mir-544 microRNA precursor family: a 98-nucleotide RNA from Acinonyx jubatus.

RNA sequence: AUCCCCUGGGGAUCUUGUUGAAUUGCAGAUUCGAAUUCAGUAGGUUUGGGGUGGGGCCUAAAAUUCUGCAUUUCUAGCAUGGUCUCAGGGGAUGCUAA
Numbered sequence: 001a002u003c004c005c006c007u008g009g010g011g012a013u014c015u016u017g018u019u020g021a022a023u024u025g026c027a028g029a030u031u032c033g034a035a036u037u038c039a040g041u042a043g044g045u046u047u048g049g050g051g052u053g054g055g056g057c058c059u060a061a062a063a064u065u066c067u068g069c070a071u072u073u074c075u076a077g078c079a080u081g082g083u084c085u086c087a088g089g090g091g092a093u094g095c096u097a098a
Stems, first nucleotide, its partner, number of pairs: 003091003009085003014081001016079005021073002025069005031063001